[Rfam]
RNA: MIR9563 microRNA precursor family
RNA sequence: UGAAUAGAAACUCGUCUCUUAACUUUUAACUAAAAAGGCUAAGAACCGGCUCUUACAUAAGAGUUUUAAUAACCGGUUCUUAACAUUUUUAGUUAAAAGUUAAGAGACGGAUUCUUAUAUUCU
Numbered sequence: 001u002g003a004a005u006a007g008a009a010a011c012u013c014g015u016c017u018c019u020u021a022a023c024u025u026u027u028a029a030c031u032a033a034a035a036a037g038g039c040u041a042a043g044a045a046c047c048g049g050c051u052c053u054u055a056c057a058u059a060a061g062a063g064u065u066u067u068a069a070u071a072a073c074c075g076g077u078u079c080u081u082a083a084c085a086u087u088u089u090u091a092g093u094u095a096a097a098a099g100u101u102a103a104g105a106g107a108c109g110g111a112u113u114c115u116u117a118u119a120u121u122c123u
Stems, first nucleotide, its partner, number of pairs: 002122004006116002009113002012110025040082006